[Rfam]
The family of this 121-nucleotide RNA from Paenibacillus cremeus is "Guanidine-I riboswitch aptamer". About the family: This family represents a conserved RNA structure found upstream of the ykkC and yxkD genes in Bacillus subtilis and related genes in other bacteria. The function of this family is unclear although it has been suggested that it may function to switch on efflux pumps and detoxification systems in response to harmful environmental molecules. NCBI's taxonomy places the organism under Bacteria, Bacillati, Bacillota, Bacilli, Paenibacillus. The match comes from Rfam's covariance-model search (77 bits).
RNA sequence: CAAGAUGUCAUCUAGGGUUCCGUAGCCUGUUUGCCCACAAUUGCAGCUGGCUAGCUGGUCCAAGAGUUGACACACGGUGACGCGAGCGCCGUGCACACGGAGGGAUAAAAACCCGGGAGGA
Numbered sequence: 001c002a003a004g005a006u007g008u009c010a011u012c013u014a015g016g017g018u019u020c021c022g023u024a025g026c027c028u029g030u031u032u033g034c035c036c037a038c039a040a041u042u043g044c045a046g047c048u049g050g051c052u053a054g055c056u057g058g059u060c061c062a063a064g065a066g067u068u069g070a071c072a073c074a075c076g077g078u079g080a081c082g083c084g085a086g087c088g089c090c091g092u093g094c095a096c097a098c099g100g101a102g103g104g105a106u107a108a109a110a111a112c113c114c115g116g117g118a119g120g121a
Stems, first nucleotide, its partner, number of pairs: 007071004012066001015061002020058002022055001023053005073093007096116001098119001102114003